This 76-nucleotide RNA from Rhododendron williamsianum belongs to the Rfam family "Small nucleolar RNA R21".
A search with the family's covariance model found it, with a score of 70 bits.
[Rfam]
RNA sequence: CAUCCCUAUGACGAGUUAAUGAAAAUUUAAAGUAGUGGGCUGAUCUAUGUUGAUGAGAACCCAAUUCUGAGGGAUG
Numbered sequence: 001c002a003u004c005c006c007u008a009u010g011a012c013g014a015g016u017u018a019a020u021g022a023a024a025a026u027u028u029a030a031a032g033u034a035g036u037g038g039g040c041u042g043a044u045c046u047a048u049g050u051u052g053a054u055g056a057g058a059a060c061c062c063a064a065u066u067c068u069g070a071g072g073g074a075u076g
Stems, first nucleotide, its partner, number of pairs: 001076006
The family's consensus secondary structure was predicted with PFOLD.